[Rfam]
RNA sequence: UUUAUUGCCGCUGCAGCAUCAUCAAGAUUCUCAUAUAUCAUCAAAGAGGGACACCCCAGUGAUCAGUAACCCUAAAAAGAUUUGUGAAUCUUGAAGAUGCUGCAUCCGCAAACAA
Numbered sequence: 001u002u003u004a005u006u007g008c009c010g011c012u013g014c015a016g017c018a019u020c021a022u023c024a025a026g027a028u029u030c031u032c033a034u035a036u037a038u039c040a041u042c043a044a045a046g047a048g049g050g051a052c053a054c055c056c057c058a059g060u061g062a063u064c065a066g067u068a069a070c071c072c073u074a075a076a077a078a079g080a081u082u083u084g085u086g087a088a089u090c091u092u093g094a095a096g097a098u099g100c101u102g103c104a105u106c107c108g109c110a111a112a113c114a115a
Stems, first nucleotide, its partner, number of pairs: 010106001012104009022094009032084002
mir-172 microRNA precursor family: a 115-nucleotide RNA from Tripterygium wilfordii. Rfam 15.1 lists 2,076 matches to the family in 219 species. Pairs were carried over by alignment from the consensus structure, which was predicted with PFOLD. mir-172 has been experimentally verified in Arabidopsis thaliana. For this family Rfam cites "Computational Identification of Plant MicroRNAs and Their Targets, Including a Stress-Induced miRNA" (Jones-Rhoades and Bartel, Mol Cell, 2004).